[Rfam]
RNA: HIV Rev response element
RNA sequence: ACCGAGGCAAAAAGAAGAGUGGUGGAGAGAGAAAAAAGAGCAGUUGGAAUGGGAGCUCUUUUCCUUGGGUUUUUAGGAACAGCAGGAAGCACUAUGGGCGCGGUGUCAAUGACGCUAACGGUACAGGCCAGACAAUUAUUGUCUGGCAUAGUGCAACAGCAAAGCAAUUUGCUGAGGGCUAUAGAGGCUCAACAGCAUAUGUUGAAACUCACAGUCUGGGGCAUUAAACAGCUCCAGGCAAGAGUCCUGGCUGUGGAAAAAUACCUAAAGGAUCAGCAGCUCCUAGGAAUUUGGGGCUGCUCUGGAAAACUCAUCUGCACCACUACUGUGCCUUGGA
Number, nucleotide and partner (000 for none) at each position: 001a000002c336003c335004g334005a333006g332007g331008c330009a329010a000011a000012a000013a000014g000015a000016a000017g000018a324019g323020u322021g321022g320023u319024g318025g000026a316027g315028a314029g312030a311031g310032a000033a000034a000035a000036a000037a303038g302039a301040g300041c299042a298043g297044u296045u295046g000047g000048a000049a000050u285051g284052g283053g282054a281055g280056c279057u278058c000059u000060u000061u000062u272063c271064c270065u269066u267067g266068g265069g264070u263071u261072u260073u259074u258075a000076g000077g000078a000079a254080c253081a252082g251083c250084a000085g000086g000087a000088a000089g154090c153091a152092c151093u150094a149095u125096g124097g000098g000099c120100g119101c000102g116103g115104u114105g113106u112107c000108a000109a000110u000111g000112a106113c105114g104115c103116u102117a000118a000119c100120g099121g000122u000123a000124c096125a095126g000127g147128c146129c145130a144131g143132a142133c141134a140135a139136u000137u000138a000139u135140u134141g133142u132143c131144u130145g129146g128147c127148a000149u094150a093151g092152u091153g090154c089155a000156a000157c174158a173159g172160c171161a170162a169163a168164g000165c000166a000167a000168u163169u162170u161171g160172c159173u158174g157175a248176g247177g246178g245179c244180u243181a000182u000183a000184g210185a209186g208187g000188c000189u205190c204191a203192a202193c201194a200195g000196c000197a000198u000199a000200u194201g193202u192203u191204g190205a189206a000207a000208c186209u185210c184211a000212c000213a000214g239215u238216c237217u236218g235219g234220g233221g232222c231223a000224u000225u000226a000227a000228a000229c000230a000231g222232c221233u220234c219235c218236a217237g216238g215239c214240a000241a000242g000243a180244g179245u178246c177247c176248u175249g000250g083251c082252u081253g080254u079255g000256g000257a000258a074259a073260a072261a071262u000263a070264c069265c068266u067267a066268a000269a065270g064271g063272a062273u000274c000275a000276g000277c000278a057279g056280c055281u054282c053283c052284u051285a050286g000287g000288a000289a000290u000291u000292u000293g000294g000295g045296g044297c043298u042299g041300c040301u039302c038303u037304g000305g000306a000307a000308a000309a000310c031311u030312c029313a000314u028315c027316u026317g000318c024319a023320c022321c021322a020323c019324u018325a000326c000327u000328g000329u009330g008331c007332c006333u005334u004335g003336g002337a000